[Rfam]
Shown here is a 76-nucleotide RNA from Rosa chinensis, a member of the family "Small nucleolar RNA R160". Rfam links the family to the GO terms RNA processing and nucleolus. A search with the family's covariance model found it, with a score of 72 bits. The literature on the family includes a 2003 paper in Nucleic Acids Res by Chen et al., "The high diversity of snoRNAs in plants: identification and comparative study of 120 snoRNA genes from Oryza sativa". Rfam describes the family as follows. snoR160 is a C/D box small nucleolar RNA, which acts as a methylation guide for 25S ribosomal RNA in plants. snoR160 has been alternatively named snoZ270 in rice. It is annotated as a C/D-box small nucleolar RNA.
Nucleotides: 076
Base pairs, nucleotide, nucleotide: 001076002075003074004073005072
Number, partner (000 for none) and nucleotide at each position: 001076a002075g003074c004073a005072a006000a007000a008000u009000g010000a011000u012000g013000a014000a015000g016000c017000u018000u019000u020000u021000u022000g023000a024000a025000u026000c027000u028000g029000a030000a031000u032000u033000u034000g035000a036000u037000g038000u039000u040000g041000a042000a043000u044000c045000a046000u047000a048000u049000a050000u051000u052000a053000u054000g055000c056000c057000u058000u059000c060000a061000a062000a063000g064000u065000u066000c067000u068000c069000u070000g071000a072005u073004u074003g075002c076001u